Bacterial large signal recognition particle RNA: a 268-nucleotide RNA sequence from bacterium HR41. The match comes from Rfam's covariance-model search (150 bits).
RNA sequence: CCGUGCUAGGCGGGGAGGUAGCGGUGCCCUGUCACCCGCAAUCCGCUCUAGCGGGGCCGAAUUCCCGUCCGAGGGGUGCGGCUCCCGGGUUCGGUCGCGCCGCCGGAAGGCGUCGAUGGCCGGGUCCCGCGCGGUCGGCGCCCGCGAACCAGGUCAGGUCCGGGAGGAAGCAGCCUUAAGCGGUAGCGCCUUCGCGCCGCGGACAAGCCUGGCCGGAGUCGGACGACGGUGUCGGCCUCUGGGGGCGGCUUCGAAGGCGGGUGCACGG
Number, nucleotide and partner (000 for none) at each position: 001c268002c267003g266004u265005g264006c263007u000008a000009g058010g057011c056012g030013g029014g028015g027016a000017g025018g000019u023020a000021g000022c000023g019024g000025u017026g000027c015028c014029c013030u012031g000032u000033c000034a000035c055036c054037c053038g052039c051040a000041a000042u000043c000044c000045g000046c000047u000048c000049u000050a000051g039052c038053g037054g036055g035056g011057c010058c009059g000060a000061a000062u000063u000064c261065c260066c259067g258068u257069c256070c000071g000072a000073g252074g251075g250076g249077u248078g000079c247080g246081g000082c244083u243084c242085c241086c000087g239088g238089g000090u000091u000092c234093g233094g000095u000096c000097g000098c231099g230100c229101c228102g227103c000104c000105g000106g224107a000108a000109g220110g219111c218112g000113u000114c000115g000116a000117u215118g214119g213120c212121c211122g210123g209124g208125u207126c000127c202128c201129g200130c199131g198132c194133g193134g000135u000136c000137g190138g189139c188140g000141c000142c183143c182144g181145c180146g000147a000148a000149c000150c000151a176152g175153g174154u173155c000156a000157g000158g000159u168160c167161c166162g000163g000164g000165a000166g161167g160168a159169a000170g000171c000172a000173g154174c153175c152176u151177u000178a000179a000180g145181c144182g143183g142184u000185a000186g000187c000188g139189c138190c137191u000192u000193c133194g132195c000196g000197c000198c131199g130200c129201g128202g127203a000204c000205a000206a000207g125208c124209c123210u122211g121212g120213c119214c118215g117216g000217a000218g111219u110220c109221g000222g000223a000224c106225g000226a000227c102228g101229g100230u099231g098232u000233c093234g092235g000236c000237c000238u088239c087240u000241g085242g084243g083244g082245g000246c080247g079248g077249c076250u075251u074252c073253g000254a000255a000256g069257g068258c067259g066260g065261g064262u000263g006264c005265a004266c003267g002268g001

Pairs were carried over by alignment from the consensus structure, which is taken from published work. By type it is a non-coding RNA gene. Clan: SRP clan. For this family Rfam cites "Kinship in the SRP RNA family" (Rosenblad et al., RNA Biol, 2009).